[Rfam]
Shown here is a 322-nucleotide RNA sequence from Cochleicola gelatinilyticus, a member of the family "Bacterial RNase P class A". The source organism's lineage runs through Bacteria, Bacteroidota, Flavobacteriia, Flavobacteriaceae and Cochleicola. The match comes from Rfam's covariance-model search (189 bits).
Nucleotides: 322
Base pairs, nucleotide, nucleotide: 001318003316004315005314006313007312008311009310010309011307012273013272014271015270016269017268018267020043021042022041023040024039025038026037027036028035048305049304050303052302053301054300055299056298057175058174059173060172064208065207066206067205069171070170071169072168073167074088075087076086077085078084089110091107092106093105094104095103096102111166112165116164117163118160119159134147135146136145137144179230180229181228182227190220191219192218193217194216201212202211203210204209237256238255239254240253241252242251243250244249
Number, partner (000 for none) and nucleotide at each position: 001318a002000c003316a004315g005314c006313a007312g008311g009310c010309c011307a012273c013272c014271u015270u016269a017268u018267c019000g020043u021042c022041u023040u024039g025038u026037u027036u028035u029000a030000u031000a032000a033000a034000u035028a036027a037026a038025g039024c040023a041022g042021g043020g044000a045000g046000g047000a048305a049304a050303g051000u052302c053301c054300g055299a056298g057175c058174a059173c060172c061000a062000u063000a064208g065207g066206g067205a068000a069171g070170c071169a072168u073167a074088g075087c076086g077085g078084c079000u080000a081000a082000c083000a084078g085077c086076c087075g088074u089110c090000g091107u092106c093105a094104u095103g096102u097000u098000a099000u100000a101000u102096a103095u104094a105093u106092g107091a108000a109000a110089g111166g112165a113000c114000c115000a116164g117163u118160g119159c120000a121000a122000c123000a124000g125000a126000a127000a128000g129000a130000a131000u132000g133000u134147a135146c136145a137144g138000a139000u140000a141000a142000u143000g144137c145136u146135g147134u148000a149000g150000u151000g152000a153000a154000a155000c156000c157000a158000g159119g160118u161000a162000a163117a164116c165112u166111c167073u168072a169071u170070g171069c172060g173059g174058u175057g176000a177000a178000a179230u180229g181228u182227c183000a184000c185000g186000u187000a188000a189000a190220c191219c192218u193217g194216u195000g196000c197000u198000u199000a200000a201212g202211g203210g204209u205067u206066c207065c208064c209204g210203c211202c212201c213000g214000a215000u216194g217193c218192a219191g220190g221000a222000g223000g224000g225000u226000a227182g228181g229180c230179a231000g232000a233000u234000a235000g236000a237256g238255u239254a240253u241252u242251u243250c244249g245000g246000u247000a248000a249244c250243g251242a252241a253240a254239u255238a256237u257000c258000c259000a260000g261000a262000u263000a264000a265000a266000u267018g268017a269016u270015a271014a272013g273012g274000c275000u276000u277000u278000u279000a280000g281000u282000g283000u284000u285000c286000u287000a288000a289000a290000a291000g292000a293000c294000a295000g296000a297000a298056c299055u300054c301053g302052g303050c304049u305048u306000a307011u308000a309010g310009g311008c312007c313006u314005g315004c316003u317000u318001u319000u320000u321000u322000a